[Rfam]
RNA sequence: AGUCUAUGAUGUUUUAAAAUAUAAGAGUAGUGGACAGAAGUGAUUUCUGAGCAAUCUUAUUCUGAGACU
Numbered sequence: 001a002g003u004c005u006a007u008g009a010u011g012u013u014u015u016a017a018a019a020u021a022u023a024a025g026a027g028u029a030g031u032g033g034a035c036a037g038a039a040g041u042g043a044u045u046u047c048u049g050a051g052c053a054a055u056c057u058u059a060u061u062c063u064g065a066g067a068c069u
Stems, first nucleotide, its partner, number of pairs: 001069004
Dot-bracket structure: ((((.............................................................))))
A member of the RNA family "Small nucleolar RNA SNORD75" from Mola mola, 69 nucleotides long. Pairs were carried over by alignment from the consensus structure, which was predicted with RNAalifold. A reference for the family is Galardi et al. (2002), "Purified box C/D snoRNPs are able to reproduce site-specific 2'-O-methylation of target RNA in vitro", Mol Cell Biol. The family has 5 seed sequences and 767 matches in Rfam 15.1. Lineage of the source: Eukaryota > Chordata > Gnathostomata > Osteoglossocephalai > Mola.